[Rfam]
RNA sequence: AUAAUUUAACAUCUCCGAGCUUUGGCAGCUUUGCUGCAGCCUAAGGGUAUGUACCUAUGGCACAAAGCCUGGGCGGCAAAAGAAAUUUUGUCACCUUCCUUUUGAAAAGGGGAUUGCAUAGUAUACGA
Numbered sequence: 001a002u003a004a005u006u007u008a009a010c011a012u013c014u015c016c017g018a019g020c021u022u023u024g025g026c027a028g029c030u031u032u033g034c035u036g037c038a039g040c041c042u043a044a045g046g047g048u049a050u051g052u053a054c055c056u057a058u059g060g061c062a063c064a065a066a067g068c069c070u071g072g073g074c075g076g077c078a079a080a081a082g083a084a085a086u087u088u089u090g091u092c093a094c095c096u097u098c099c100u101u102u103u104g105a106a107a108a109g110g111g112g113a114u115u116g117c118a119u120a121g122u123a124u125a126c127g128a
Stems, first nucleotide, its partner, number of pairs: 003122001011114006019061003023057003028052002033048003071096003075092007097105002
RNA: Molybdenum/Tungsten riboswitch aptamer (Moco RNA motif)
Organism: Hydrogenoanaerobacterium saccharovorans